[Rfam]
Bacillaceae-1 RNA: a 66-nucleotide sequence from Bacillus coahuilensis. Pairs were carried over by alignment from the consensus structure, which is taken from published work.
RNA sequence: CAAAAAUGAACUUCUACUAAGUUCGCCACGUCAUGUGGCAACGUAGAAGUCAGCGCGUCGUGCGCA
Numbered sequence: 001c002a003a004a005a006a007u008g009a010a011c012u013u014c015u016a017c018u019a020a021g022u023u024c025g026c027c028a029c030g031u032c033a034u035g036u037g038g039c040a041a042c043g044u045a046g047a048a049g050u051c052a053g054c055g056c057g058u059c060g061u062g063c064g065c066a
Stems, first nucleotide, its partner, number of pairs: 011049007025039005053065004
Dot-bracket structure: ..........(((((((.......(((((.....)))))...)))))))...((((.....)))).
Description:
Lineage of the source: Bacteria > Bacillota > Caryophanales > Bacillaceae > Bacillus coahuilensis.